[Rfam]
Background:
This 95-nucleotide RNA sequence from Sphingomonas sinipercae belongs to the Rfam family "Bacterial small signal recognition particle RNA". Rfam's curators write: The signal recognition particle (SRP) is a universally conserved ribonucleoprotein involved in the co-translational targeting of proteins to membranes. A search with the family's covariance model found it, with a score of 67 bits.
RNA sequence: CUCGGAAGUCGGCGGACGGCGCUGUCGCCAACCUGGUCAGGUCCGGAAGGAAGCAGCCACAACGAUUUGGUGCCGGGUCGUCGGCUUCCACCCUC
Numbered sequence: 001c002u003c004g005g006a007a008g009u010c011g012g013c014g015g016a017c018g019g020c021g022c023u024g025u026c027g028c029c030a031a032c033c034u035g036g037u038c039a040g041g042u043c044c045g046g047a048a049g050g051a052a053g054c055a056g057c058c059a060c061a062a063c064g065a066u067u068u069g070g071u072g073c074c075g076g077g078u079c080g081u082c083g084g085c086u087u088c089c090a091c092c093c094u095c
Base pairs, nucleotide, nucleotide: 004089005088006087007086008085009084010083011082012081013080014079017075018074019073020072021071022070024066025065026064027063034059035058036057037056042051043050044049

By type it is a non-coding RNA gene.